[Rfam]
The family of this 132-nucleotide sequence from Muraenolepis orangiensis is "U4atac minor spliceosomal RNA". Rfam 15.1 lists 1,648 matches to the family in 818 species. Its Rfam clan is "U4 clan". Taxonomically the source falls in Muraenolepis (Eukaryota, Neopterygii, Neoteleostei, Muraenolepidoidei). Rfam's curators write: U4atac is an essential component of the minor U12-type spliceosome complex which is required for removal of the rarer class of eukaryotic introns (AT-AC, U12-type).
RNA sequence: ACCGUCCUUGUCUUGGGGUGGCUUGAGGCACUCAAUGAACGCGUAGUGAGAGAGUCUCUGCUAACAACCGUAAACGACAUAUACGCACCACCCGGACCCUCGUGUUCGGGCUAUGGUGCAAUUUUUGGAACC
Dot-bracket structure: .....((((.....))))..((....(((.(((.....((.....))..))).)))...)).......................((((((((((((........))))))...)))))).............
Numbered sequence: 001a002c003c004g005u006c007c008u009u010g011u012c013u014u015g016g017g018g019u020g021g022c023u024u025g026a027g028g029c030a031c032u033c034a035a036u037g038a039a040c041g042c043g044u045a046g047u048g049a050g051a052g053a054g055u056c057u058c059u060g061c062u063a064a065c066a067a068c069c070g071u072a073a074a075c076g077a078c079a080u081a082u083a084c085g086c087a088c089c090a091c092c093c094g095g096a097c098c099c100u101c102g103u104g105u106u107c108g109g110g111c112u113a114u115g116g117u118g119c120a121a122u123u124u125u126u127g128g129a130a131c132c
Stems, first nucleotide, its partner, number of pairs: 006018004021061002027056003031052003039047002085119006091110006